The family of this 135-nucleotide RNA sequence is "RAGATH-4 RNA". It is one of the family's seed sequences. Pairs were carried over by alignment from the consensus structure, which is taken from published work.
[Rfam]
RNA sequence: GAACAGUCCCCGAUAGAAAUGAGUAUCGGAAAUGGUGCGUGUUCCGUUCGAUACUGCAACGGCUGUGGGGAAAAAUAUACCCCAUGCGCCGAAAUGCAGAGCCGGAACCAUUUCAAAUAUCGGGUUUAUCAUUGA
Numbered sequence: 001g002a003a004c005a006g007u008c009c010c011c012g013a014u015a016g017a018a019a020u021g022a023g024u025a026u027c028g029g030a031a032a033u034g035g036u037g038c039g040u041g042u043u044c045c046g047u048u049c050g051a052u053a054c055u056g057c058a059a060c061g062g063c064u065g066u067g068g069g070g071a072a073a074a075a076u077a078u079a080c081c082c083c084a085u086g087c088g089c090c091g092a093a094a095u096g097c098a099g100a101g102c103c104g105g106a107a108c109c110a111u112u113u114c115a116a117a118u119a120u121c122g123g124g125u126u127u128a129u130c131a132u133u134g135a
Stems, first nucleotide, its partner, number of pairs: 009124005016114006023038006041108006054099005060091003064086006